Flavo-1 RNA: a 76-nucleotide RNA from Flavobacterium sp. TAB 87. The source organism's lineage runs through Bacteria, Pseudomonadati, Bacteroidota, Flavobacteriia and Flavobacterium. The base pairs follow the family's consensus structure, which is taken from published work.

Nucleotides: 076
Base pairs, nucleotide, nucleotide: 009068010067011066013064018059019058023054024053025052028050029049030048031047032046033045034044035043
Number, partner (000 for none) and nucleotide at each position: 001000c002000c003000u004000u005000a006000g007000g008000c009068c010067g011066g012000a013064u014000a015000g016000u017000a018059g019058c020000g021000g022000c023054a024053u025052c026000c027000u028050g029049u030048u031047g032046u033045g034044c035043c036000g037000u038000g039000g040000u041000u042000c043035g044034g045033c046032a047031c048030a049029a050028c051000a052025g053024a054023u055000a056000c057000a058019g059018c060000g061000g062000a063000g064013a065000g066011c067010c068009g069000g070000a071000a072000a073000a074000g075000c076000u